[Rfam]
RNA sequence: AAUCGUUCGGUUGGACUCAAGGGCGGAUCGGCGCAAUCCCUGUGAAAGGGGGUGGCGCCAAUGACAGUAUUUGAAACAUUGUUUCUGAUGAUCAGUUUUAGUACGUUGAUCGUCGUUGUACUGUCAUUUCACCAAAAGAAAUAAGCCCCCCUUGAGAACCUGACAGGUCUUUGGGGCUUAUUUCAACUCAAACACGCCGAUCACCCUUUGCAGGGAACCAACGAUGCAAUCGACCAUUCGUGCGACAACACGAGUG
Numbered sequence: 001a002a003u004c005g006u007u008c009g010g011u012u013g014g015a016c017u018c019a020a021g022g023g024c025g026g027a028u029c030g031g032c033g034c035a036a037u038c039c040c041u042g043u044g045a046a047a048g049g050g051g052g053u054g055g056c057g058c059c060a061a062u063g064a065c066a067g068u069a070u071u072u073g074a075a076a077c078a079u080u081g082u083u084u085c086u087g088a089u090g091a092u093c094a095g096u097u098u099u100a101g102u103a104c105g106u107u108g109a110u111c112g113u114c115g116u117u118g119u120a121c122u123g124u125c126a127u128u129u130c131a132c133c134a135a136a137a138g139a140a141a142u143a144a145g146c147c148c149c150c151c152u153u154g155a156g157a158a159c160c161u162g163a164c165a166g167g168u169c170u171u172u173g174g175g176g177c178u179u180a181u182u183u184c185a186a187c188u189c190a191a192a193c194a195c196g197c198c199g200a201u202c203a204c205c206c207u208u209u210g211c212a213g214g215g216a217a218c219c220a221a222c223g224a225u226g227c228a229a230u231c232g233a234c235c236a237u238u239c240g241u242g243c244g245a246c247a248a249c250a251c252g253a254g255u256g
Base pairs, nucleotide, nucleotide: 003224004223005222007220009202010201011200012199013198014197016156017155018154019153020152021151022150023149026146028144034054035053037052038051039050040049041048063125064124065123066122067121068120069119077090078089100117101116102115161185162184163183204215205214206213235256236255237254238253239252240251241250242249